[Rfam]
RNA sequence: CAAUGGAAUCGCCUCCGAGCUUAAGUCCCUAAUGGCAGUUGCCUAUGGGAUCAAGCCGAUAGGGUAAUGUUGGAAACGGCGUUGCCUCCCAGUGGAAAGGAGAUGUGUGGCUGAAGUG
Number, nucleotide and partner (000 for none) at each position: 001c000002a000003a112004u000005g000006g000007a000008a000009u000010c000011g104012c000013c102014u101015c100016c099017g000018a000019g056020c055021u054022u053023a000024a051025g000026u050027c049028c048029c047030u000031a000032a000033u000034g043035g042036c041037a000038g000039u000040u000041g036042c035043c034044u000045a000046u000047g029048g028049g027050a026051u024052c000053a022054a021055g020056c019057c000058g000059a000060u000061a000062g087063g086064g085065u084066a083067a082068u081069g080070u079071u078072g077073g000074a000075a000076a000077c072078g071079g070080c069081g068082u067083u066084g065085c064086c063087u062088c095089c094090c000091a000092g000093u000094g089095g088096a000097a000098a000099g016100g015101a014102g013103a000104u011105g000106u000107g000108u000109g000110g000111c000112u003113g000114a000115a000116g000117u000118g000

This 118-nucleotide RNA from Anoxynatronum buryatiense belongs to the Rfam family "Molybdenum/Tungsten riboswitch aptamer (Moco RNA motif)". Gene Ontology terms of the family: tungstate binding, molybdenum ion binding and regulation of gene expression. NCBI's taxonomy places the organism under Bacteria, Clostridia, Eubacteriales, Clostridiaceae, Anoxynatronum.